[Rfam]
Nucleotides: 083
Stems, first nucleotide, its partner, number of pairs: 001083001003081005
Number, partner (000 for none) and nucleotide at each position: 001083a002000u003081u004080g005079g006078c007077a008000u009000u010000a011000a012000u013000g014000a015000u016000g017000a018000u019000u020000u021000u022000u023000c024000u025000u026000u027000u028000u029000g030000c031000c032000g033000u034000u035000u036000a037000c038000c039000c040000g041000g042000c043000u044000g045000a046000g047000u048000g049000c050000u051000u052000c053000u054000u055000u056000g057000a058000a059000g060000u061000g062000g063000a064000c065000u066000u067000a068000a069000a070000u071000c072000u073000g074000a075000g076000a077007u078006g079005c080004c081003a082000u083001u